[Rfam]
RNA: Yersinia sRNA 283
RNA sequence: CAACGGCGGGAACAAUCAGCAGUAACAGCAAACCGGGAACAACCAUGGCCAGAGCCCAAACGCCCCAGUCAAGAUGAAUGCCCAGAAUUUUGGCAGCGAAAUCAGCAGCCAGUAGAUUUGGUGCCAUCGCAGUGAUAAACAUAAAACUGCUGACCUUCAUGACAAAGUAAAUAUUGGACAUCAAAUAAGAGCCCGCUUUCUUUGCCGUAUCACCGGGUUCUGAUCCCAACGCUUUUACUACCGACAGGAUGAU
Numbered sequence: 001c002a003a004c005g006g007c008g009g010g011a012a013c014a015a016u017c018a019g020c021a022g023u024a025a026c027a028g029c030a031a032a033c034c035g036g037g038a039a040c041a042a043c044c045a046u047g048g049c050c051a052g053a054g055c056c057c058a059a060a061c062g063c064c065c066c067a068g069u070c071a072a073g074a075u076g077a078a079u080g081c082c083c084a085g086a087a088u089u090u091u092g093g094c095a096g097c098g099a100a101a102u103c104a105g106c107a108g109c110c111a112g113u114a115g116a117u118u119u120g121g122u123g124c125c126a127u128c129g130c131a132g133u134g135a136u137a138a139a140c141a142u143a144a145a146a147c148u149g150c151u152g153a154c155c156u157u158c159a160u161g162a163c164a165a166a167g168u169a170a171a172u173a174u175u176g177g178a179c180a181u182c183a184a185a186u187a188a189g190a191g192c193c194c195g196c197u198u199u200c201u202u203u204g205c206c207g208u209a210u211c212a213c214c215g216g217g218u219u220c221u222g223a224u225c226c227c228a229a230c231g232c233u234u235u236u237a238c239u240a241c242c243g244a245c246a247g248g249a250u251g252a253u
Stems, first nucleotide, its partner, number of pairs: 005064004019029002035044002047056003065248002068245003073128004080124002082121005090112005096106002129150005166239006174229004180224004189220007